[Rfam]
The family of this 89-nucleotide RNA is "BsrC". The family's consensus secondary structure was predicted with CMfinder. The match comes from Rfam's covariance-model search (73 bits). The 301 nucleotide sequence from Kouji Nakamura has been trimmed to a highly conserved ~85 nucleotide long core to form this family. The family has 29 seed sequences and 572 matches in Rfam 15.1.
RNA sequence: AUUACCUAAAACAAUGAAAGCCCUACCUCUCUUUCAUCCUUACGGCUCCUUGUCCGUGCCAGUUUUCCAAUAAAGGGAAGGGGAAUUUC
Numbered sequence: 001a002u003u004a005c006c007u008a009a010a011a012c013a014a015u016g017a018a019a020g021c022c023c024u025a026c027c028u029c030u031c032u033u034u035c036a037u038c039c040u041u042a043c044g045g046c047u048c049c050u051u052g053u054c055c056g057u058g059c060c061a062g063u064u065u066u067c068c069a070a071u072a073a074a075g076g077g078a079a080g081g082g083g084a085a086u087u088u089c
Stems, first nucleotide, its partner, number of pairs: 034069001036065001039062002041058005047052001